[Rfam]
RNA: 7SK RNA
RNA sequence: AGAUGUGAGGGCUAUCUGGCUGUGACAUCUGUCACCCCAUUGAUUGCCAGGGUUGAUUCGGCUGAUCUGGCUGGCUAGGCGGGUGUCCCCUUCCUCCCUCAACGCUCCAUGUGCGUCCCUCCCGAAGCUGCGCACUUGGUCGAAGAGGAUGACCUCCCCGAUAGAGAUGGUACUGUUCAUCGGUCAAGGGUAUACAGUAGCUACGCUCCCCUCCAAACAAGCUCAAGGUCCAUUUGUAGGAGAACGUAGGGUAGUCAAGCUUCCAAGACUGCAGACACAUCCAAGAUAAAUCUU
Numbered sequence: 001a002g003a004u005g006u007g008a009g010g011g012c013u014a015u016c017u018g019g020c021u022g023u024g025a026c027a028u029c030u031g032u033c034a035c036c037c038c039a040u041u042g043a044u045u046g047c048c049a050g051g052g053u054u055g056a057u058u059c060g061g062c063u064g065a066u067c068u069g070g071c072u073g074g075c076u077a078g079g080c081g082g083g084u085g086u087c088c089c090c091u092u093c094c095u096c097c098c099u100c101a102a103c104g105c106u107c108c109a110u111g112u113g114c115g116u117c118c119c120u121c122c123c124g125a126a127g128c129u130g131c132g133c134a135c136u137u138g139g140u141c142g143a144a145g146a147g148g149a150u151g152a153c154c155u156c157c158c159c160g161a162u163a164g165a166g167a168u169g170g171u172a173c174u175g176u177u178c179a180u181c182g183g184u185c186a187a188g189g190g191u192a193u194a195c196a197g198u199a200g201c202u203a204c205g206c207u208c209c210c211c212u213c214c215a216a217a218c219a220a221g222c223u224c225a226a227g228g229u230c231c232a233u234u235u236g237u238a239g240g241a242g243a244a245c246g247u248a249g250g251g252u253a254g255u256c257a258a259g260c261u262u263c264c265a266a267g268a269c270u271g272c273a274g275a276c277a278c279a280u281c282c283a284a285g286a287u288a289a290a291u292c293u294u
Base pairs, nucleotide, nucleotide: 002107003106006101007100008099009098010097011096014092018090019089024087025086026085027084028083029082030081031080032079033078035074036073037070038069039068042067043066044065045064046062047061048060116170117169119166120165121164122139123138124137125136127135140161141160142159147157148156149155200260201259202258206254207253209251210250211242212241213240214239217237218236219235220234221233